[Rfam]
RNA sequence: GUUACCUUUAAAUCAGUCCAGUGAGGCUGGCAAGGUCGAUAGUGGAUUAAUAUGUCUAAUUUAGGAGUAUAUCCUUAUUUAUAACCACUUUUCGUCUAUUCAAAACACCUUGCCAAAAUGUUGGCAAGGUGUUUUUUUA
Numbered sequence: 001g002u003u004a005c006c007u008u009u010a011a012a013u014c015a016g017u018c019c020a021g022u023g024a025g026g027c028u029g030g031c032a033a034g035g036u037c038g039a040u041a042g043u044g045g046a047u048u049a050a051u052a053u054g055u056c057u058a059a060u061u062u063a064g065g066a067g068u069a070u071a072u073c074c075u076u077a078u079u080u081a082u083a084a085c086c087a088c089u090u091u092u093c094g095u096c097u098a099u100u101c102a103a104a105a106c107a108c109c110u111u112g113c114c115a116a117a118a119u120g121u122u123g124g125c126a127a128g129g130u131g132u133u134u135u136u137u138u139a
Stems, first nucleotide, its partner, number of pairs: 004036005013030006044074004050070004055065003103134014
RNA: PyrR binding site
Organism: Cerasibacillus terrae